[Rfam]
RNA: Molybdenum/Tungsten riboswitch aptamer (Moco RNA motif)
Organism: Teredinibacter turnerae
RNA sequence: UAACUUUAAUUUCGCCGAAGCCAGUUUAGCCUACAGCCGCCACACGGCCAUGGACAACUGGCCGCAGCGCCAGCCGCUGCCGGGUUACAAGGGAAACUUUGUGGCCUCCCACACUUGGAAAGGCAUACAUGCACACUAUAC
Numbered sequence: 001u002a003a004c005u006u007u008a009a010u011u012u013c014g015c016c017g018a019a020g021c022c023a024g025u026u027u028a029g030c031c032u033a034c035a036g037c038c039g040c041c042a043c044a045c046g047g048c049c050a051u052g053g054a055c056a057a058c059u060g061g062c063c064g065c066a067g068c069g070c071c072a073g074c075c076g077c078u079g080c081c082g083g084g085u086u087a088c089a090a091g092g093g094a095a096a097c098u099u100u101g102u103g104g105c106c107u108c109c110c111a112c113a114c115u116u117g118g119a120a121a122g123g124c125a126u127a128c129a130u131g132c133a134c135a136c137u138a139u140a141c
Stems, first nucleotide, its partner, number of pairs: 011127001014124003020062007030053002036048003065079005082107011108118002